[Rfam]
Actinobacteria sRNA Ms_IGR-5: a 221-nucleotide sequence from Streptomyces sp. SID4985. Rfam classes the family as a small RNA. It scores 80 bits against the family's covariance model. The organism belongs to Streptomyces, within Bacteria.

RNA sequence: ACACACGAAGGGAGGUGGUUCGGCAGAUGUACGGAAACCGGACGCGUGAGGUGGCUGCGGGCUAGCGGCCCGACACCACGCCUCGUCGAGGGUGCCGGACCAGCGCGUGCGCGUCAUGCGCAGCCGGCCAAUCCAUCGCAGUCGCCCGACCCGUGAGCUCGCCGGUACGUCCGGCCGGCUCUCCGCCCCGGCGGAGGACCCGAGCUCGCGGGUCGUCUGCG
Numbered sequence: 001a002c003a004c005a006c007g008a009a010g011g012g013a014g015g016u017g018g019u020u021c022g023g024c025a026g027a028u029g030u031a032c033g034g035a036a037a038c039c040g041g042a043c044g045c046g047u048g049a050g051g052u053g054g055c056u057g058c059g060g061g062c063u064a065g066c067g068g069c070c071c072g073a074c075a076c077c078a079c080g081c082c083u084c085g086u087c088g089a090g091g092g093u094g095c096c097g098g099a100c101c102a103g104c105g106c107g108u109g110c111g112c113g114u115c116a117u118g119c120g121c122a123g124c125c126g127g128c129c130a131a132u133c134c135a136u137c138g139c140a141g142u143c144g145c146c147c148g149a150c151c152c153g154u155g156a157g158c159u160c161g162c163c164g165g166u167a168c169g170u171c172c173g174g175c176c177g178g179c180u181c182u183c184c185g186c187c188c189c190g191g192c193g194g195a196g197g198a199c200c201c202g203a204g205c206u207c208g209c210g211g212g213u214c215g216u217c218u219g220c221g
Stems, first nucleotide, its partner, number of pairs: 015058005060129004065124002068121002071118001072115003147215013161179006